PreQ1 (pre queuosine) riboswitch aptamer: a 45-nucleotide sequence from Ligilactobacillus salivarius. Taxonomically the source falls in Ligilactobacillus salivarius (Bacteria, Bacilli, Lactobacillaceae, Ligilactobacillus). A reference for the family is Kang et al. (2009), "Structural Insights into riboswitch control of the biosynthesis of queuosine, a modified nucleotide found in the anticodon of tRNA", Mol Cell. Rfam's curators write: This family is a bacterial riboswitch that binds to the metabolite preQ1, an intermediate in the biosynthesis of the modified nucleoside queuosine from GTP. One example of this riboswitch is located in the leader of the Bacillus subtilis ykvJKLM (queCDEF) operon which encodes four genes necessary for queuosine production. PreQ1 binding to the riboswitch aptamer is thought to induce premature transcription termination within the leader to down-regulate expression of these genes.
[Rfam]
RNA sequence: UCCACACUGGUUCGUAAACAUCCCAGUUAAAAAAACUAGAAAGCA
Numbered sequence: 001u002c003c004a005c006a007c008u009g010g011u012u013c014g015u016a017a018a019c020a021u022c023c024c025a026g027u028u029a030a031a032a033a034a035a036c037u038a039g040a041a042a043g044c045a
Base pairs, nucleotide, nucleotide: 006027007026008025009024010023015038016037